Rfam assigns this 98-nucleotide sequence to the family "mir-210 microRNA precursor family". The sequence is in the family's curated seed alignment. Gene Ontology terms of the family: miRNA-mediated post-transcriptional gene silencing and RISC complex. The literature on the family includes a 2005 paper in Genes Dev by Chen et al., "The developmental miRNA profiles of zebrafish as determined by small RNA cloning".
RNA sequence: UCUGAAAGCAGGUAAGCCACUGACUAACGCACAUUGCGCCUAUUCUCCACUCCACUGUGCGUGUGACAGCGGCUAACCAGCUUUUGGAUCUGCACCUG
Numbered sequence: 001u002c003u004g005a006a007a008g009c010a011g012g013u014a015a016g017c018c019a020c021u022g023a024c025u026a027a028c029g030c031a032c033a034u035u036g037c038g039c040c041u042a043u044u045c046u047c048c049a050c051u052c053c054a055c056u057g058u059g060c061g062u063g064u065g066a067c068a069g070c071g072g073c074u075a076a077c078c079a080g081c082u083u084u085u086g087g088a089u090c091u092g093c094a095c096c097u098g
Stems, first nucleotide, its partner, number of pairs: 005084005011078002015074004020069003024065001025063002028061006035054002